The record is a 78-nucleotide RNA sequence, which matches "CyVA-1 RNA" in Rfam. Rfam's curators write: Cyanobacteria, Acidobacteria (1 example), Verrucomicrobia (1 example). Rfam's curators put it in the seed alignment.
[Rfam]
RNA sequence: CUAACAUCGCAGGGGUUGUACUGUUUGACCUGUUGGUCGGGUUUCGAAGGAGAACGGUGUCAGAAACCCGAAUGGUUU
Numbered sequence: 001c002u003a004a005c006a007u008c009g010c011a012g013g014g015g016u017u018g019u020a021c022u023g024u025u026u027g028a029c030c031u032g033u034u035g036g037u038c039g040g041g042u043u044u045c046g047a048a049g050g051a052g053a054a055c056g057g058u059g060u061c062a063g064a065a066a067c068c069c070g071a072a073u074g075g076u077u078u
Stems, first nucleotide, its partner, number of pairs: 003076001005074002009033004038070008